The family of this 182-nucleotide sequence from Anaerospora hongkongensis is "Lysine riboswitch aptamer". The family has 47 seed sequences and 3,224 matches in Rfam 15.1. Taxonomically the source falls in Anaerospora (Bacteria, Bacillati, Bacillota, Negativicutes). The base pairs follow the family's consensus structure, which is taken from published work.
[Rfam]
RNA sequence: GUGUCAGAUAGAGGCGCGAAUCAUCAUUAUUACCUGUAAUUAGCUUUGCCAAAUGCCAUGAGUUACAGAGAAAGGGAUAUUCGCCGAAGCGUAGGCUAAAAGGCUAACGUCUGCUGCUGGGCUUGUACUGAAUAAGUGCAGGACUGUCACCUAGUAUUUUUAGGUGGAGAACUAUCUCAUUA
Numbered sequence: 001g002u003g004u005c006a007g008a009u010a011g012a013g014g015c016g017c018g019a020a021u022c023a024u025c026a027u028u029a030u031u032a033c034c035u036g037u038a039a040u041u042a043g044c045u046u047u048g049c050c051a052a053a054u055g056c057c058a059u060g061a062g063u064u065a066c067a068g069a070g071a072a073a074g075g076g077a078u079a080u081u082c083g084c085c086g087a088a089g090c091g092u093a094g095g096c097u098a099a100a101a102g103g104c105u106a107a108c109g110u111c112u113g114c115u116g117c118u119g120g121g122c123u124u125g126u127a128c129u130g131a132a133u134a135a136g137u138g139c140a141g142g143a144c145u146g147u148c149a150c151c152u153a154g155u156a157u158u159u160u161u162a163g164g165u166g167g168a169g170a171a172c173u174a175u176c177u178c179a180u181u182a
Stems, first nucleotide, its partner, number of pairs: 006177006016084006023078003034068007088118003091114006119145002122142008147167007